[Rfam]
This 169-nucleotide RNA from Agathobaculum faecis belongs to the Rfam family "glmS glucosamine-6-phosphate activated ribozyme aptamer".
This entry contains a glucosamine-6-phosphate activated ribozyme that is found in the mRNA for GlmS. GlmS is an enzyme that uses fructose-6-phosphate and glutamine to generate glucosamine-6-phosphate.
The family's consensus secondary structure is taken from published work.
A search with the family's covariance model found it, with a score of 104 bits.
Lineage of the source: Bacteria > Bacillati > Bacillota > Eubacteriales > Agathobaculum.
By type it is a riboswitch.
Rfam links the family to the GO terms catalytic activity and regulation of gene expression.

RNA sequence: AUAGCAAGUCAAGCGCCAGAACUGCGAUGCAGCCGGUAUCGCAGUUGACGAGGGAAGGGUUAAUCGAAGUUUUCGGCGGAUGCCCUUCGGCCAUGAGUGGGUUGGUCGUGAGCAGACUGUUAAAUCGCGCGGGCGACUGCGCGGACAGAGCAGAUUCUGCAUAACGCAC
Numbered sequence: 001a002u003a004g005c006a007a008g009u010c011a012a013g014c015g016c017c018a019g020a021a022c023u024g025c026g027a028u029g030c031a032g033c034c035g036g037u038a039u040c041g042c043a044g045u046u047g048a049c050g051a052g053g054g055a056a057g058g059g060u061u062a063a064u065c066g067a068a069g070u071u072u073u074c075g076g077c078g079g080a081u082g083c084c085c086u087u088c089g090g091c092c093a094u095g096a097g098u099g100g101g102u103u104g105g106u107c108g109u110g111a112g113c114a115g116a117c118u119g120u121u122a123a124a125u126c127g128c129g130c131g132g133g134c135g136a137c138u139g140c141g142c143g144g145a146c147a148g149a150g151c152a153g154a155u156u157c158u159g160c161a162u163a164a165c166g167c168a169c
Stems, first nucleotide, its partner, number of pairs: 020046008029037001055087005064076004088108006113159004117153002126143007
Dot-bracket structure: ...................((((((((.(.......).))))))))........(((((....((((.....))))......)))))((((((.........))))))....((((((.......(((((((....)))))))........))..))))..........